[Rfam]
This 101-nucleotide RNA from Limnothrix sp. P13C2 belongs to the Rfam family "TPP riboswitch aptamer (THI element)".

RNA sequence: UGGCCAAGCUAGGGGUGUCUGGGAUCCUUGCCCAGGCUGAGAACACACCCUUAGAACCUGAUCCGGUUCAAACCGGCGUAGGAAAGCUACUUUUUUGAGGA
Numbered sequence: 001u002g003g004c005c006a007a008g009c010u011a012g013g014g015g016u017g018u019c020u021g022g023g024a025u026c027c028u029u030g031c032c033c034a035g036g037c038u039g040a041g042a043a044c045a046c047a048c049c050c051u052u053a054g055a056a057c058c059u060g061a062u063c064c065g066g067u068u069c070a071a072a073c074c075g076g077c078g079u080a081g082g083a084a085a086g087c088u089a090c091u092u093u094u095u096u097g098a099g100g101a
Stems, first nucleotide, its partner, number of pairs: 007088004011051004016045001017037007057082004063076004